[Rfam]
RNA sequence: UGACUCUGGUUUCUCUUCAUUACGCACAAGCCUUUCGCCUUUUACUAAAGACUUCCAGGGAGAGGAACACUGAUUAAUUCAACGUAUUUUUGGUAAGGCGGCAGGUAGCCUA
Number, nucleotide and partner (000 for none) at each position: 001u000002g000003a075004c000005u073006c072007u000008g000009g068010u067011u066012u065013c064014u063015c062016u061017u060018c059019a000020u000021u000022a000023c000024g000025c000026a000027c000028a054029a053030g052031c000032c050033u049034u048035u047036c000037g000038c000039c000040u000041u000042u000043u000044a000045c000046u000047a035048a034049a033050g032051a000052c030053u029054u028055c000056c000057a000058g000059g018060g017061a016062g015063a014064g013065g012066a011067a010068c009069a000070c000071u000072g006073a005074u000075u003076a000077a000078u000079u000080c000081a000082a000083c000084g000085u000086a000087u000088u000089u000090u000091u000092g000093g000094u112095a000096a111097g110098g109099c108100g000101g106102c000103a000104g000105g000106u101107a000108g099109c098110c097111u096112a094
The record is a 112-nucleotide RNA from Salmo salar, which matches "U5 spliceosomal RNA" in Rfam.
Pairs were carried over by alignment from the consensus structure, which is taken from published work.
The match comes from Rfam's covariance-model search (68 bits).
Rfam links the family to the GO terms U5 snRNP and spliceosomal tri-snRNP complex assembly.
Lineage of the source: Eukaryota > Euteleostomi > Teleostei > Clupeocephala > Salmo.
Rfam describes the family as follows. U5 RNA is a component of both types of known spliceosome. The precise function of this molecule is unknown, though it is known that the 5' loop is required for splice site selection and p220 binding, and that both the 3' stem-loop and the Sm site are important for Sm protein binding and cap methylation.